[Rfam]
RNA sequence: UCAGCUCUCUUUGCCAUUUGGCUUAGAUUAAUUGUAGUAACUGUUCUUUGCAGUUUAAUCCCUGCAACGCUUCCUAUGGGGAGUGAACCAGACUACUUUUUGGACCCCGGUUUGGAGGCGCUGAGCUCCGCUCAUCUUCCAGGCCACAGUGUCGCUCGUAUUGCACUACUUCGAGCUGACGCGAACCUUC
Numbered sequence: 001u002c003a004g005c006u007c008u009c010u011u012u013g014c015c016a017u018u019u020g021g022c023u024u025a026g027a028u029u030a031a032u033u034g035u036a037g038u039a040a041c042u043g044u045u046c047u048u049u050g051c052a053g054u055u056u057a058a059u060c061c062c063u064g065c066a067a068c069g070c071u072u073c074c075u076a077u078g079g080g081g082a083g084u085g086a087a088c089c090a091g092a093c094u095a096c097u098u099u100u101u102g103g104a105c106c107c108c109g110g111u112u113u114g115g116a117g118g119c120g121c122u123g124a125g126c127u128c129c130g131c132u133c134a135u136c137u138u139c140c141a142g143g144c145c146a147c148a149g150u151g152u153c154g155c156u157c158g159u160a161u162u163g164c165a166c167u168a169c170u171u172c173g174a175g176c177u178g179a180c181g182c183g184a185a186c187c188u189u190c
Base pairs, nucleotide, nucleotide: 008027009026010025013022014021015020048067049066050065051064052063053062069084070083071082072081073080074079109145110144111143112142113141114140115139116138122134123133124132125131126130149182150181151180152179153178154176155175156174157173158172